RNA sequence: CACUGUCGCCAGGGGAGCCAACCGGCUGAGAAGGCAGGCGUUGUAUCGCGCUUGCAGACCCUGGAACCUGAUCCGGUUAAUACCGGCGGAGGAAGUGCGACAUGCCAUACCU
Number, nucleotide and partner (000 for none) at each position: 001c000002a000003c000004u000005g000006u100007c099008g098009c097010c000011a062012g061013g060014g059015g000016a000017g026018c025019c024020a000021a000022c000023c000024g019025g018026c017027u000028g000029a000030g000031a000032a000033g000034g055035c054036a053037g052038g051039c050040g049041u048042u000043g000044u000045a000046u000047c000048g041049c040050g039051c038052u037053u036054g035055c034056a000057g000058a000059c014060c013061c012062u011063g000064g000065a000066a000067c092068c091069u090070g000071a000072u000073c086074c085075g084076g083077u000078u000079a000080a000081u000082a000083c076084c075085g074086g073087c000088g000089g000090a069091g068092g067093a000094a000095g000096u000097g009098c008099g007100a006101c000102a000103u000104g000105c000106c000107a000108u000109a000110c000111c000112u000